[Rfam]
Nucleotides: 075
Base pairs, nucleotide, nucleotide: 014058015057016056017055018054021051022050023049024048025047029043030042031041032040034038
Number, partner (000 for none) and nucleotide at each position: 001000a002000a003000a004000g005000u006000u007000a008000u009000a010000g011000g012000c013000c014058u015057u016056c017055u018054c019000u020000u021051c022050c023049c024048a025047g026000u027000u028000c029043u030042u031041c032040c033000a034038g035000a036000g037000u038034c039000a040032g041031g042030a043029a044000a045000a046000g047025c048024u049023g050022g051021g052000u053000u054018g055017a056016g057015a058014a059000g060000g061000u062000g063000a064000a065000a066000a067000a068000a069000a070000a071000a072000a073000a074000g075000u